[Rfam]
A member of the RNA family "Bacterial RNase P class A" from Wenxinia marina, 386 nucleotides long.

RNA sequence: GCGGAGGGUCGGACGGCCGCGGGGGCCUCCGGGUCUUCGAGGAAAGUCCGGACUCCCGUCUGGCACGGUGCCGGGUAACGCCCGGCCGGGGCAACCCGAGGGAAAGCGCCACAGAGAACAGUCCGCCCGGCACGUCCGGGUCAGGGUGAAACGGUGGGGUAAGAGCCCACCGCGGGACGGGCAACCGGACCGGCACGGCAAGCCCCACCGGGAGCAAUGCCGAAUAGGGGCCUCGCGCGGAGGGUGACUUCCGCAGGGACGCCAGACCCCGAGAGGCCCGGGUUGGCAGCUGGAGGCACGCGGCAACGCGUGCCCGAGAGGAAUGGUCGUCGCUCCGGGGCGUGUCUCCGGAGGCACAGAAUCCGGCUUACAGACCCUCCGCGCAC
Numbered sequence: 001g002c003g004g005a006g007g008g009u010c011g012g013a014c015g016g017c018c019g020c021g022g023g024g025g026c027c028u029c030c031g032g033g034u035c036u037u038c039g040a041g042g043a044a045a046g047u048c049c050g051g052a053c054u055c056c057c058g059u060c061u062g063g064c065a066c067g068g069u070g071c072c073g074g075g076u077a078a079c080g081c082c083c084g085g086c087c088g089g090g091g092c093a094a095c096c097c098g099a100g101g102g103a104a105a106g107c108g109c110c111a112c113a114g115a116g117a118a119c120a121g122u123c124c125g126c127c128c129g130g131c132a133c134g135u136c137c138g139g140g141u142c143a144g145g146g147u148g149a150a151a152c153g154g155u156g157g158g159g160u161a162a163g164a165g166c167c168c169a170c171c172g173c174g175g176g177a178c179g180g181g182c183a184a185c186c187g188g189a190c191c192g193g194c195a196c197g198g199c200a201a202g203c204c205c206c207a208c209c210g211g212g213a214g215c216a217a218u219g220c221c222g223a224a225u226a227g228g229g230g231c232c233u234c235g236c237g238c239g240g241a242g243g244g245u246g247a248c249u250u251c252c253g254c255a256g257g258g259a260c261g262c263c264a265g266a267c268c269c270c271g272a273g274a275g276g277c278c279c280g281g282g283u284u285g286g287c288a289g290c291u292g293g294a295g296g297c298a299c300g301c302g303g304c305a306a307c308g309c310g311u312g313c314c315c316g317a318g319a320g321g322a323a324u325g326g327u328c329g330u331c332g333c334u335c336c337g338g339g340g341c342g343u344g345u346c347u348c349c350g351g352a353g354g355c356a357c358a359g360a361a362u363c364c365g366g367c368u369u370a371c372a373g374a375c376c377c378u379c380c381g382c383g384c385a386c
Stems, first nucleotide, its partner, number of pairs: 001382010011371001012331007020039008044369003048366005053214004062263003066210005071085005086100001087098004101205002106203002108199003123145002125141006153171006172194001173192003178187003218288004228279006256270003295314008
Lineage of the source: Bacteria > Pseudomonadota > Alphaproteobacteria > Wenxinia > Wenxinia marina. The family's RNA type in Rfam is ribozyme. It scores 263 bits against the family's covariance model.